RNA sequence: AAGUGUCAUAGCUCUUUUAGAAUUUGUUUAGCAGGCUUUCUGGUUUUUACUGCAAAGCCCCU
Numbered sequence: 001a002a003g004u005g006u007c008a009u010a011g012c013u014c015u016u017u018u019a020g021a022a023u024u025u026g027u028u029u030a031g032c033a034g035g036c037u038u039u040c041u042g043g044u045u046u047u048u049a050c051u052g053c054a055a056a057g058c059c060c061c062u
Base pairs, nucleotide, nucleotide: 034059035058036057037056038055039054041052042051043050044049